This 159-nucleotide RNA from Vibrio sp. 16 belongs to the Rfam family "DABA-DC-AT RNA".
Pairs were carried over by alignment from the consensus structure, which is taken from published work.
The family's RNA type in Rfam is cis-regulatory element.
The organism belongs to Vibrio, within Bacteria.
RNA sequence: GCAAUCUCGGACGAGAGUCUAGUAAAGACAUUCUGGGGGAUACGCGAGGUGUUCAUUCGGGCUGAGUGAGCAUCGCGUAGGGUAGGUAUCGGUAAGUUCUUUUACCGAUAGACGGGAUACUAAUGUCGUGGAUGCGGCAUGUGAAUGGGAAACCCAACA
Numbered sequence: 001g002c003a004a005u006c007u008c009g010g011a012c013g014a015g016a017g018u019c020u021a022g023u024a025a026a027g028a029c030a031u032u033c034u035g036g037g038g039g040a041u042a043c044g045c046g047a048g049g050u051g052u053u054c055a056u057u058c059g060g061g062c063u064g065a066g067u068g069a070g071c072a073u074c075g076c077g078u079a080g081g082g083u084a085g086g087u088a089u090c091g092g093u094a095a096g097u098u099c100u101u102u103u104a105c106c107g108a109u110a111g112a113c114g115g116g117a118u119a120c121u122a123a124u125g126u127c128g129u130g131g132a133u134g135c136g137g138c139a140u141g142u143g144a145a146u147g148g149g150a151a152a153c154c155c156a157a158c159a
Stems, first nucleotide, its partner, number of pairs: 006037006044078003048074004053069003087110010124139006
Dot-bracket structure: .....((((((....................))))))......(((.((((.(((...........))).)))).)))........((((((((((....)))))))))).............((((((....))))))....................